[Rfam]
RNA sequence: CGAGAGAACCUUCGCUAAGGAACUCGGCAAUACAGCGACCGUAACUUCGGGAUAAGGUCUGCCCCCACUUCGGUGGAUAUGAGCCGCGUUCAUAAACUCAGCGAUUAGGUGGUUAGAAGAACGCAUUUAUCAGAGGUAAAAGCGCUGAUAAAUGUAGUGAGUACGCAUCGUUUCUGCGUAAAGUAGAAUCGGUGUGAUCAAAUCCUUUUUAAAACCAUAGAAUUUUUCUGAGAUAAGUAACAUGAAUAAUGUUCUUUUGAACGCGAACCGUUCACAUCUAACGAUGUGGGGGCCGCAGCAAAAGAGCCCACGGAACUGUUUAUCAAAAACACAGGUCUCUGCUAACACGAAAGUGGAUGUAUAGGGGCUGACUCCUGCCCAAUGCUGGAAGGUUAAGGGGAGCGCUUCACGGUGCGAACUGAAGCCCUAGUCAAUGGCGGCGGUAACUAUAACCGUCCUAAGGUAGCGAAAUUCCUUGUCAGGUAAGUUCUGACCCGCACGAAUGGAGUAAUCAUGUGGGCACUGUCUCAGCGAAGGACUCG
Numbered sequence: 001c002g003a004g005a006g007a008a009c010c011u012u013c014g015c016u017a018a019g020g021a022a023c024u025c026g027g028c029a030a031u032a033c034a035g036c037g038a039c040c041g042u043a044a045c046u047u048c049g050g051g052a053u054a055a056g057g058u059c060u061g062c063c064c065c066c067a068c069u070u071c072g073g074u075g076g077a078u079a080u081g082a083g084c085c086g087c088g089u090u091c092a093u094a095a096a097c098u099c100a101g102c103g104a105u106u107a108g109g110u111g112g113u114u115a116g117a118a119g120a121a122c123g124c125a126u127u128u129a130u131c132a133g134a135g136g137u138a139a140a141a142g143c144g145c146u147g148a149u150a151a152a153u154g155u156a157g158u159g160a161g162u163a164c165g166c167a168u169c170g171u172u173u174c175u176g177c178g179u180a181a182a183g184u185a186g187a188a189u190c191g192g193u194g195u196g197a198u199c200a201a202a203u204c205c206u207u208u209u210u211a212a213a214a215c216c217a218u219a220g221a222a223u224u225u226u227u228c229u230g231a232g233a234u235a236a237g238u239a240a241c242a243u244g245a246a247u248a249a250u251g252u253u254c255u256u257u258u259g260a261a262c263g264c265g266a267a268c269c270g271u272u273c274a275c276a277u278c279u280a281a282c283g284a285u286g287u288g289g290g291g292g293c294c295g296c297a298g299c300a301a302a303a304g305a306g307c308c309c310a311c312g313g314a315a316c317u318g319u320u321u322a323u324c325a326a327a328a329a330c331a332c333a334g335g336u337c338u339c340u341g342c343u344a345a346c347a348c349g350a351a352a353g354u355g356g357a358u359g360u361a362u363a364g365g366g367g368c369u370g371a372c373u374c375c376u377g378c379c380c381a382a383u384g385c386u387g388g389a390a391g392g393u394u395a396a397g398g399g400g401a402g403c404g405c406u407u408c409a410c411g412g413u414g415c416g417a418a419c420u421g422a423a424g425c426c427c428u429a430g431u432c433a434a435u436g437g438c439g440g441c442g443g444u445a446a447c448u449a450u451a452a453c454c455g456u457c458c459u460a461a462g463g464u465a466g467c468g469a470a471a472u473u474c475c476u477u478g479u480c481a482g483g484u485a486a487g488u489u490c491u492g493a494c495c496c497g498c499a500c501g502a503a504u505g506g507a508g509u510a511a512u513c514a515u516g517u518g519g520g521c522a523c524u525g526u527c528u529c530a531g532c533g534a535a536g537g538a539c540u541c542g
Base pairs, nucleotide, nucleotide: 001542002541003540004539009537010536011535012534013533014532015531016530018528019527020526037059038058039057040056045050061293062292063291064290065289066288067287068286070284071283072282294298306521307520308519309518310517311516312515313513314512317331318330319329334369335368336367337366338365339364340363341362342359346355347354348353372508373507374506375505377438378437379436382435383434384431385430386429387428388427391426392425393424397420398419402415403414404413405412406411439457440456441455442454443453444452458462468495478494479493480492481491482490483489
This 542-nucleotide part of an RNA from Candidatus Saccharibacteria bacterium RAAC3_TM7_1 belongs to the Rfam family "Bacterial large subunit ribosomal RNA". A search with the family's covariance model found it, with a score of 2523 bits. Taxonomically the source falls in Candidatus Saccharimonadota (Bacteria, Bacteria candidate phyla).